[Rfam]
STnc490 Hfq binding RNA: a 123-nucleotide RNA from Shewanella algae. NCBI's taxonomy places the organism under Bacteria, Pseudomonadota, Gammaproteobacteria, Alteromonadales, Shewanella. The base pairs follow the family's consensus structure, which was predicted with WAR. It scores 94 bits against the family's covariance model.
RNA sequence: CCCCCCCUGCUUGACUGGGGGUUCCGUAAAGCUUGCAGCUAUAAGUCAGUUAUAAAACACCUUUCAAUUUGUUAAAACACUUAUGCGGUCUGGCAACUGCAAGAGUUAAACAAAAAUUGAAAG
Numbered sequence: 001c002c003c004c005c006c007c008u009g010c011u012u013g014a015c016u017g018g019g020g021g022u023u024c025c026g027u028a029a030a031g032c033u034u035g036c037a038g039c040u041a042u043a044a045g046u047c048a049g050u051u052a053u054a055a056a057a058c059a060c061c062u063u064u065c066a067a068u069u070u071g072u073u074a075a076a077a078c079a080c081u082u083a084u085g086c087g088g089u090c091u092g093g094c095a096a097c098u099g100c101a102a103g104a105g106u107u108a109a110a111c112a113a114a115a116a117u118u119g120a121a122a123g
Stems, first nucleotide, its partner, number of pairs: 003021005009015001028042001030040004061123009070112004076107003081104002084101006